This 95-nucleotide RNA sequence from Ruegeria pomeroyi belongs to the Rfam family "Rhodo-rpoB RNA".

[Rfam]
Nucleotides: 095
Base pairs, nucleotide, nucleotide: 001044002043003042004041005040010032011031012030013029014028015027016026067095068094069093070092071091072089073088074087075086076085
Number, partner (000 for none) and nucleotide at each position: 001044g002043g003042a004041u005040c006000g007000g008000g009000a010032g011031g012030c013029c014028g015027c016026c017000a018000c019000u020000c021000g022000g023000g024000a025000c026016g027015g028014u029013g030012g031011c032010c033000a034000u035000g036000a037000a038000u039000u040005g041004a042003u043002c044001c045000c046000a047000a048000a049000c050000g051000c052000g053000u054000c055000g056000u057000c058000u059000c060000g061000a062000a063000u064000g065000g066000u067095c068094a069093a070092g071091g072089c073088g074087c075086c076085g077000g078000g079000g080000c081000c082000c083000g084000g085076c086075g087074g088073c089072g090000c091071u092070c093069u094068u095067g
Rfam classes the family as a cis-regulatory element. NCBI's taxonomy places the organism under Bacteria, Pseudomonadati, Rhodobacterales, Ruegeria, Ruegeria pomeroyi.